[Rfam]
RNA: Bacterial RNase P class B
RNA sequence: AGUUUUGGGUAAUUGAGCACAGCUUAUGUUGUGUUAGGAAGGUCCAUGCUCGCACAGGCUGCGAUGCCUGUAGUGUUUGUGCUCGCUGAAAAAAUAAGGCGGGGCACCAUUUUAUGGUGACGGCGGAAAAACGGACUAAGGUUUUAACUACGUCUUAGUAUUCCUGAAAAGUGCCACAGUGACGAUACAAUAUUGGAAACGAUAUUGGUGGAACGCGGUAAACCCCUCAAGCGGUAAACCCAAACUACGGUAGGGGAGCUUUGGAUAACAAAUUGAAGUGAUUCCAGGGGAGAGUAUUUCGAUACUCUGAGAUAGAUGAUUACCUCGAUAUAAUUAUGCCUGAUAAUUAUAUUACGACAAAACAUGGCCUACAGAU
Numbered sequence: 001a002g003u004u005u006u007g008g009g010u011a012a013u014u015g016a017g018c019a020c021a022g023c024u025u026a027u028g029u030u031g032u033g034u035u036a037g038g039a040a041g042g043u044c045c046a047u048g049c050u051c052g053c054a055c056a057g058g059c060u061g062c063g064a065u066g067c068c069u070g071u072a073g074u075g076u077u078u079g080u081g082c083u084c085g086c087u088g089a090a091a092a093a094a095u096a097a098g099g100c101g102g103g104g105c106a107c108c109a110u111u112u113u114a115u116g117g118u119g120a121c122g123g124c125g126g127a128a129a130a131a132c133g134g135a136c137u138a139a140g141g142u143u144u145u146a147a148c149u150a151c152g153u154c155u156u157a158g159u160a161u162u163c164c165u166g167a168a169a170a171g172u173g174c175c176a177c178a179g180u181g182a183c184g185a186u187a188c189a190a191u192a193u194u195g196g197a198a199a200c201g202a203u204a205u206u207g208g209u210g211g212a213a214c215g216c217g218g219u220a221a222a223c224c225c226c227u228c229a230a231g232c233g234g235u236a237a238a239c240c241c242a243a244a245c246u247a248c249g250g251u252a253g254g255g256g257a258g259c260u261u262u263g264g265a266u267a268a269c270a271a272a273u274u275g276a277a278g279u280g281a282u283u284c285c286a287g288g289g290g291a292g293a294g295u296a297u298u299u300c301g302a303u304a305c306u307c308u309g310a311g312a313u314a315g316a317u318g319a320u321u322a323c324c325u326c327g328a329u330a331u332a333a334u335u336a337u338g339c340c341u342g343a344u345a346a347u348u349a350u351a352u353u354a355c356g357a358c359a360a361a362a363c364a365u366g367g368c369c370u371a372c373a374g375a376u
Stems, first nucleotide, its partner, number of pairs: 005375002007372001008324007016035006040370003044367005050234004054071006077230003081226001082103006104121001105119006122225002125164004133155004140149003171223002173219003188207008239255003259289007291308007327353011